[Rfam]
Shown here is a 100-nucleotide RNA from Petrocella atlantisensis, a member of the family "Glycine riboswitch aptamer". This family represents the bacterial glycine riboswitch. Glycine riboswitches usually consist of two metabolite-binding aptamers domains with similar structures in tandem. The aptamers cooperatively bind glycine to regulate the expression of downstream genes. The organism belongs to Petrocella, within Bacteria. The match comes from Rfam's covariance-model search (63 bits).
RNA sequence: AUGAUUUUAGGGAAAGAGACCAUCAGUUGGCGCCGAAGAAGCAAUACAUUCCAAGUCCUAGAAUGUAGAAUCUUUCAGGCAAAAGGAUCCCUAAAGGAUA
Number, nucleotide and partner (000 for none) at each position: 001a000002u000003g000004a000005u000006u095007u094008u093009a092010g091011g090012g089013a088014a000015a000016g000017a000018g000019a000020c030021c029022a028023u000024c000025a000026g000027u000028u022029g021030g020031c000032g080033c079034c078035g076036a075037a000038g000039a074040a073041g072042c000043a000044a000045u067046a066047c065048a064049u063050u062051c061052c000053a000054a000055g000056u000057c000058c000059u000060a000061g051062a050063a049064u048065g047066u046067a045068g000069a000070a000071u000072c041073u040074u039075u036076c035077a000078g034079g033080c032081a000082a000083a000084a000085g000086g000087a000088u013089c012090c011091c010092u009093a008094a007095a006096g000097g000098a000099u000100a000